[Rfam]
RNA: Fluoride riboswitch aptamer (crcB RNA motif)
Organism: Paenibacillus dendrobii
RNA sequence: AGGUAAUAGGGCGAUGGAGUUCGCCAUAACCGCCGCAAGGCUGAUGACUCCUACCAGUGA
Numbered sequence: 001a002g003g004u005a006a007u008a009g010g011g012c013g014a015u016g017g018a019g020u021u022c023g024c025c026a027u028a029a030c031c032g033c034c035g036c037a038a039g040g041c042u043g044a045u046g047a048c049u050c051c052u053a054c055c056a057g058u059g060a
Base pairs, nucleotide, nucleotide: 010025011024012023013022016051017050018049019048020047021046032041033040034039